[Rfam]
Shown here is a 133-nucleotide RNA sequence from Brachypteracias leptosomus, a member of the family "Small nucleolar RNA SNORA55".
The family's RNA type in Rfam is H/ACA-box small nucleolar RNA.
A search with the family's covariance model found it, with a score of 122 bits.
ACA55 is a member of the H/ACA class of snoRNA that guide the sites of modification of uridines to pseudouridines.
Pairs were carried over by alignment from the consensus structure, which was predicted with PFOLD.
The organism belongs to Brachypteracias, within Eukaryota.
RNA sequence: GCACCUGAAACUUUCCCGUUCCUUGCUGUGCAGUGCAGGUCUGGGGAUACUUGGUGCUACAGCACAGCAGUGGAAAUCCAGAUGGGUUGUUUUCCAUUGGUUUGCAACUCAUCUCUACACCUCUGCAACAUUG
Numbered sequence: 001g002c003a004c005c006u007g008a009a010a011c012u013u014u015c016c017c018g019u020u021c022c023u024u025g026c027u028g029u030g031c032a033g034u035g036c037a038g039g040u041c042u043g044g045g046g047a048u049a050c051u052u053g054g055u056g057c058u059a060c061a062g063c064a065c066a067g068c069a070g071u072g073g074a075a076a077u078c079c080a081g082a083u084g085g086g087u088u089g090u091u092u093u094c095c096a097u098u099g100g101u102u103u104g105c106a107a108c109u110c111a112u113c114u115c116u117a118c119a120c121c122u123c124u125g126c127a128a129c130a131u132u133g
Stems, first nucleotide, its partner, number of pairs: 001057005013047006021039002067126004072121001080114008095104002